[Rfam]
RNA: c-di-GMP-I riboswitch aptamer
RNA sequence: AAAUGAUAAAGGCAAAACCAUCGAAAGAUGGUGACGCAAAACUACAGGGGCUAAAGCGAUUCGCUAAGCCAGCCAGUUACCGAC
Numbered sequence: 001a002a003a004u005g006a007u008a009a010a011g012g013c014a015a016a017a018c019c020a021u022c023g024a025a026a027g028a029u030g031g032u033g034a035c036g037c038a039a040a041a042c043u044a045c046a047g048g049g050g051c052u053a054a055a056g057c058g059a060u061u062c063g064c065u066a067a068g069c070c071a072g073c074c075a076g077u078u079a080c081c082g083a084c
Stems, first nucleotide, its partner, number of pairs: 012037002017032006040078004047074002049070003056064003
Dot-bracket structure: ...........((...((((((....))))))...))..((((...(((((....(((...)))...)))..))))))......